[Rfam]
RNA: Plastid-psbl-rps4 3UTR RNA
RNA sequence: AGGAUAGAGAGAGAUUCGAACCCUCGGUACGUAAAACUCGUACAACGGAUUAG
Dot-bracket structure: ........(((.(.......).))).(((((.......)))))..........